[Rfam]
RNA sequence: AGACACUGCCUUUCAGGCAUCCUCUCCCAAAACUUUCACGGCCCGGUCGGUAACGCCCGGGCCUUCUUUUUGCCGCGA
Numbered sequence: 001a002g003a004c005a006c007u008g009c010c011u012u013u014c015a016g017g018c019a020u021c022c023u024c025u026c027c028c029a030a031a032a033c034u035u036u037c038a039c040g041g042c043c044c045g046g047u048c049g050g051u052a053a054c055g056c057c058c059g060g061g062c063c064u065u066c067u068u069u070u071u072g073c074c075g076c077g078a
Base pairs, nucleotide, nucleotide: 008018009017010016011015040063041062042061043060044059045058046057048055

The record is a 78-nucleotide RNA sequence from Novosphingobium sp. ST904, which matches "Makes More Granules Regulator RNA (mmgR)" in Rfam. It scores 53 bits against the family's covariance model. SuhB later renamed mmgR (makes more granules regulator) was a putative non-coding RNA found multiple times in the Agrobacterium tumefaciens genome and related alpha-proteobacteria. Other non-coding RNAs uncovered in the same analysis include: speF, ybhL, metA, and serC.Several studies inSinorhizobium meliloti showed that suhB element is indeed a non-coding RNA:firstly it was detected on Northern blot and called Sm8RNA, secondly in an RNAseq study referred to as SmelC689.The mutant phenotype's (strain lacking the small RNA) cytoplasm contains higher content of polyhydroxybutyrate (PBH)storage granules than wild type strain. The sRNA is required to limit the PBH intracellular accumulation when the nitrogen-fixing Sinorhizobium meliloti is under condition of surplus carbon in relation to nitrogen. It has been renamed to mmgR. Further study confirmed that mmgR fine-tunes the regulation of PBH storage.Northern blot confirmed the expression of the sRNA in other rhizobia species. MmgR homologues were found in most alpha-proteobacteria. The family has 87 seed sequences and 1,791 matches in Rfam 15.1. Its family is annotated with response to nitrogen compound, DNA-templated transcription, termination and protein binding in the Gene Ontology. Lineage of the source: Bacteria > Pseudomonadati > Alphaproteobacteria > Sphingomonadales > Novosphingobium.